The record is an 81-nucleotide sequence from Flavobacterium faecale, which matches "Flavo-1 RNA" in Rfam. The family has 201 seed sequences and 7,497 matches in Rfam 15.1. The organism belongs to Flavobacterium, within Bacteria. The base pairs follow the family's consensus structure, which is taken from published work.
[Rfam]
RNA sequence: UCCUAGCCCUGAUAGCAGUGAAAUCCUUUUGGGGGCUUUUGUUUUGCCCACAAAAGAUUGGAACGGAUAACAGGAAAUAGC
Numbered sequence: 001u002c003c004u005a006g007c008c009c010u011g012a013u014a015g016c017a018g019u020g021a022a023a024u025c026c027u028u029u030u031g032g033g034g035g036c037u038u039u040u041g042u043u044u045u046g047c048c049c050a051c052a053a054a055a056g057a058u059u060g061g062a063a064c065g066g067a068u069a070a071c072a073g074g075a076a077a078u079a080g081c
Stems, first nucleotide, its partner, number of pairs: 009073003013069002018064002022059004028054004033049003